Shown here is a 135-nucleotide sequence from Sporobacter termitidis, a member of the family "Molybdenum/Tungsten riboswitch aptamer (Moco RNA motif)".
RNA sequence: AAAACUGAAUAGUUCCAAGCCCGCGCCGCCUACGGGAAACUAUGGAGGUCGGGCCUAAACUCCUUGGGGUUUACGGGGUAUCGCCGGAAACGGCGGUGCCUUCCAAAAUUGAGAAGGAACAAAUUGCUGUGCGUC
Numbered sequence: 001a002a003a004a005c006u007g008a009a010u011a012g013u014u015c016c017a018a019g020c021c022c023g024c025g026c027c028g029c030c031u032a033c034g035g036g037a038a039a040c041u042a043u044g045g046a047g048g049u050c051g052g053g054c055c056u057a058a059a060c061u062c063c064u065u066g067g068g069g070u071u072u073a074c075g076g077g078g079u080a081u082c083g084c085c086g087g088a089a090a091c092g093g094c095g096g097u098g099c100c101u102u103c104c105a106a107a108a109u110u111g112a113g114a115a116g117g118a119a120c121a122a123a124u125u126g127c128u129g130u131g132c133g134u135c
Stems, first nucleotide, its partner, number of pairs: 004128001006126001012120005019054005026048002029045002034041002056073005076101011102112002
The organism belongs to Sporobacter termitidis, within Bacteria. A search with the family's covariance model found it, with a score of 72 bits.